L2-Alphaproteobacteria ribosomal protein leader: a 65-nucleotide RNA. The sequence is in the family's curated seed alignment. The family's consensus secondary structure is taken from published work.
Nucleotides: 065
Stems, first nucleotide, its partner, number of pairs: 001018004006014003026044007
Number, partner (000 for none) and nucleotide at each position: 001018g002017g003016g004015g005000a006014c007013c008012u009000u010000c011000g012008g013007g014006g015004c016003c017002c018001u019000a020000u021000c022000a023000a024000u025000c026044g027043c028042g029041g030040c031039g032038c033000g034000u035000a036000a037000a038032g039031u040030g041029c042028u043027g044026c045000a046000u047000u048000u049000a050000u051000a052000a053000c054000g055000g056000a057000a058000g059000a060000c061000a062000g063000a064000a065000a
By type it is a cis-regulatory leader.